A member of the RNA family "Streptomyces-metH RNA" from Streptomyces corynorhini, 120 nucleotides long.
By type it is a small RNA.
Lineage of the source: Bacteria > Actinomycetes > Kitasatosporales > Streptomycetaceae > Streptomyces.
[Rfam]
Nucleotides: 120
Base pairs, nucleotide, nucleotide: 059082060081061080062079064076066074067073085099086098088097089096090095
Number, partner (000 for none) and nucleotide at each position: 001000c002000c003000g004000u005000c006000c007000g008000c009000c010000c011000g012000c013000u014000g015000g016000g017000a018000c019000g020000c021000c022000g023000u024000a025000c026000c027000g028000g029000a030000c031000c032000u033000g034000g035000g036000c037000g038000c039000a040000c041000c042000c043000g044000g045000c046000u047000a048000c049000g050000c051000u052000g053000g054000c055000c056000g057000g058000g059082u060081g061080c062079g063000c064076c065000u066074g067073c068000c069000a070000c071000c072000a073067g074066u075000c076064g077000g078000g079062c080061g081060c082059a083000a084000a085099g086098c087000c088097g089096a090095c091000a092000g093000c094000c095090g096089u097088c098086g099085c100000a101000g102000c103000c104000c105000c106000g107000g108000g109000a110000g111000u112000a113000c114000u115000u116000u117000c118000a119000u120000g